[Rfam]
RNA sequence: AAUCAAGAGAGUCAAUGACAAGCCCUGGCUGGUUGACCGGCAACCCUCUGGUAGUAGUGGGGUGCUCCAGGUGACGAUUCGGCGUUCGGGGAACUCCGCAACGCAAGUACUGCAU
Numbered sequence: 001a002a003u004c005a006a007g008a009g010a011g012u013c014a015a016u017g018a019c020a021a022g023c024c025c026u027g028g029c030u031g032g033u034u035g036a037c038c039g040g041c042a043a044c045c046c047u048c049u050g051g052u053a054g055u056a057g058u059g060g061g062g063u064g065c066u067c068c069a070g071g072u073g074a075c076g077a078u079u080c081g082g083c084g085u086u087c088g089g090g091g092a093a094c095u096c097c098g099c100a101a102c103g104c105a106a107g108u109a110c111u112g113c114a115u
Stems, first nucleotide, its partner, number of pairs: 001079004009038001011037006021030002039066003044062003048057002082104005087098004

The record is a 115-nucleotide sequence from Neomicrococcus aestuarii, which matches "SAM (S-adenosyl methionine) riboswitch aptamer" in Rfam.
It scores 86 bits against the family's covariance model.
SAM-IV is a mRNA element that regulates gene expression via direct sensing of S-adenosylmethionine (SAM or AdoMet). SAM-IV riboswitches share conserved nucleotide positions with the previously described SAM-I riboswitches sequence analysis and molecular recognition experiments suggest that SAM-I and SAM-IV riboswitches share similar ligand binding sites, but have different scaffolds.
The source organism's lineage runs through Bacteria, Actinomycetota, Actinomycetes, Micrococcaceae and Neomicrococcus.